[Rfam]
RNA sequence: GGUCCGUGAUGAGUUUUGGCAUGUAUUAUCUGAGCAUGCAGCUGAAGAUUAUCACUUUAGCUCUAGAAUUACUCUGAGACCUG
Number, nucleotide and partner (000 for none) at each position: 001g081002g080003u079004c078005c000006g000007u000008g000009a000010u000011g000012a000013g000014u000015u000016u000017u000018g000019g000020c000021a000022u000023g000024u000025a000026u000027u000028a000029u000030c000031u000032g000033a000034g000035c000036a000037u000038g000039c000040a000041g000042c000043u000044g000045a000046a000047g000048a000049u000050u000051a000052u000053c000054a000055c000056u000057u000058u000059a000060g000061c000062u000063c000064u000065a000066g000067a000068a000069u000070u000071a000072c000073u000074c000075u000076g000077a000078g004079a003080c002081c001082u000083g000

The record is an 83-nucleotide RNA from Penelope pileata, which matches "Small nucleolar RNA SNORD45" in Rfam. The family's consensus secondary structure was predicted with PFOLD. The literature on the family includes a 2002 paper in Mol Cell Biol by Galardi et al., "Purified box C/D snoRNPs are able to reproduce site-specific 2'-O-methylation of target RNA in vitro". By type it is a C/D-box small nucleolar RNA. Gene Ontology terms of the family: nucleolus and RNA processing.